[Rfam]
RNA sequence: GUCAGCACCCCGCACUGAAGUUGCGGGGCUAGGCUACGCCUCGCUGCGCGCCCGUGCCCCCCCCGUUUCAGUUAGCUGACCAGCCUAAGUCUUAAAUGACUACGUUUUUAAGGUCAUAAUACCUACGAAUGCCUCGCUAGUUCGUAGCUCUAUUGUUAACAAUUAAACAGUUUUACGAGGGGUAAGGCAGUGUUGUUAACCUAAUAAGCCUAAAAAACAUUGGCGAAGCGAACUUUAC
Dot-bracket structure: (((((((.((((.((....))..)).))............................................).))))))..(((.(((((......))))..((((((.((((....((..(((((((([..[[[[[.))))))))....)).(((((((((...((.((.((((.....)).)))).))))))))))).......)))).)))))).).)))..]]]]]..]....
Notes: HNH endonuclease-associated RNA and ORF (HEARO) RNA: a 238-nucleotide RNA from Gloeothece verrucosa. Rfam classes the family as a non-coding RNA gene. The family has 139 seed sequences and 952 matches in Rfam 15.1. Rfam's curators put it in the seed alignment.